[Rfam]
A member of the RNA family "Small nucleolar RNA SNORD60" from Nothobranchius furzeri, 85 nucleotides long. NCBI's taxonomy places the organism under Eukaryota, Metazoa, Vertebrata, Eurypterygia, Nothobranchius.
RNA sequence: AGCCGGUGAUGACAGAUAAAAACUUUCUGACACCUCGUAUGAGAGCUGCACUCCAGCUCCUGAUUCUAUUUCUGAUCUGAGGCUC
Numbered sequence: 001a002g003c004c005g006g007u008g009a010u011g012a013c014a015g016a017u018a019a020a021a022a023c024u025u026u027c028u029g030a031c032a033c034c035u036c037g038u039a040u041g042a043g044a045g046c047u048g049c050a051c052u053c054c055a056g057c058u059c060c061u062g063a064u065u066c067u068a069u070u071u072c073u074g075a076u077c078u079g080a081g082g083c084u085c
Stems, first nucleotide, its partner, number of pairs: 001084004045057004